[Rfam]
RNA sequence: CAGGCGGUGCAGUGAUGUAGCGUUGAGUAAGCCAGAAGUCAGCCGAGGUCAUAGUAGUCUGAGUAAUCAGAUGAAGGAC
Numbered sequence: 001c002a003g004g005c006g007g008u009g010c011a012g013u014g015a016u017g018u019a020g021c022g023u024u025g026a027g028u029a030a031g032c033c034a035g036a037a038g039u040c041a042g043c044c045g046a047g048g049u050c051a052u053a054g055u056a057g058u059c060u061g062a063g064u065a066a067u068c069a070g071a072u073g074a075a076g077g078a079c
Base pairs, nucleotide, nucleotide: 001025002024004023005022006021008019009018010017011016039046040045048079049078050077057072058071059070060069061068062067
Group II catalytic intron D1-D4-1: a 79-nucleotide RNA sequence from Limosilactobacillus vaginalis. It is one of the family's seed sequences. From the family's description: Group II introns are found in rRNA, tRNA and mRNA of organelles in fungi, plants and protists, and also in mRNA in bacteria.